[Rfam]
RNA sequence: GCCUCCAGGCCCUGACUGACCUGGUUUCCAGGGCCCUGGAGGC
Numbered sequence: 001g002c003c004u005c006c007a008g009g010c011c012c013u014g015a016c017u018g019a020c021c022u023g024g025u026u027u028c029c030a031g032g033g034c035c036c037u038g039g040a041g042g043c
Stems, first nucleotide, its partner, number of pairs: 001043009010033004
The family of this 43-nucleotide sequence from Deltaretrovirus priTlym3 is "ribosomal frameshift site". It is annotated as a frameshift element. The organism belongs to Primate T-lymphotropic virus 3, within Viruses. The literature on the family includes a 1993 paper in J Virol by Nam et al., "Characterization of ribosomal frameshifting for expression of pol gene products of human T-cell leukemia virus type I".